[Rfam]
MIR2655 microRNA precursor family: a 243-nucleotide RNA sequence from Trifolium subterraneum. The source organism's lineage runs through Eukaryota, Streptophytina, Fabales, Papilionoideae and Trifolium. The match comes from Rfam's covariance-model search (123 bits). The base pairs follow the family's consensus structure, which was predicted with RNAalifold.
RNA sequence: ACCUUAUCUUUUAAAAGUUCCAAGUUGGUACCUUAUCUUUUCUGCAGGUUUCAAGUUGGUACCUUCCGUCAAUUUUUUAACUAUUACCGUUAAAUUUGGACACGUGUCAUUGAUUUAUAGGUCCAAAAAAAUUGACACGUGUCCAAAUUUAACGGAAAUAGUUAAAAAAUUGACGGAAGGUACCAACUUGAAACCUGCAGAAAAGAUAAGGUUACCAACUUGAAACUUUUAAAAGAUAAGGUA
Numbered sequence: 001a002c003c004u005u006a007u008c009u010u011u012u013a014a015a016a017g018u019u020c021c022a023a024g025u026u027g028g029u030a031c032c033u034u035a036u037c038u039u040u041u042c043u044g045c046a047g048g049u050u051u052c053a054a055g056u057u058g059g060u061a062c063c064u065u066c067c068g069u070c071a072a073u074u075u076u077u078u079a080a081c082u083a084u085u086a087c088c089g090u091u092a093a094a095u096u097u098g099g100a101c102a103c104g105u106g107u108c109a110u111u112g113a114u115u116u117a118u119a120g121g122u123c124c125a126a127a128a129a130a131a132u133u134g135a136c137a138c139g140u141g142u143c144c145a146a147a148u149u150u151a152a153c154g155g156a157a158a159u160a161g162u163u164a165a166a167a168a169a170u171u172g173a174c175g176g177a178a179g180g181u182a183c184c185a186a187c188u189u190g191a192a193a194c195c196u197g198c199a200g201a202a203a204a205g206a207u208a209a210g211g212u213u214a215c216c217a218a219c220u221u222g223a224a225a226c227u228u229u230u231a232a233a234a235g236a237u238a239a240g241g242u243a
Stems, first nucleotide, its partner, number of pairs: 002241007023220003027216003031211013045197003